[Rfam]
A member of the RNA family "MIR7502 microRNA precursor family" from Gossypium schwendimanii, 144 nucleotides long. The match comes from Rfam's covariance-model search (77 bits). The base pairs follow the family's consensus structure, which was predicted with RNAalifold.
RNA sequence: UAUUAAAAAAUUAUUUAUUUGUAUUGUUAAAAGUUGGUGUGCUUGACGGAAUAACUAAAUAGUAACACGUGGUGUGUCAUGUGAAUGUCAUGUUGAUGUUCAUGGACUAACUUUUAAUAAUAAAAACGGAUAGAAUUUUUAAUA
Numbered sequence: 001u002a003u004u005a006a007a008a009a010a011u012u013a014u015u016u017a018u019u020u021g022u023a024u025u026g027u028u029a030a031a032a033g034u035u036g037g038u039g040u041g042c043u044u045g046a047c048g049g050a051a052u053a054a055c056u057a058a059a060u061a062g063u064a065a066c067a068c069g070u071g072g073u074g075u076g077u078c079a080u081g082u083g084a085a086u087g088u089c090a091u092g093u094u095g096a097u098g099u100u101c102a103u104g105g106a107c108u109a110a111c112u113u114u115u116a117a118u119a120a121u122a123a124a125a126a127c128g129g130a131u132a133g134a135a136u137u138u139u140u141a142a143u144a
Stems, first nucleotide, its partner, number of pairs: 002143008011134001012132004018126003022122004027117006
Dot-bracket structure: .((((((((.(((((..(((.((((.((((((...............................................................................)))))).)))).)))..)))).).)))))))).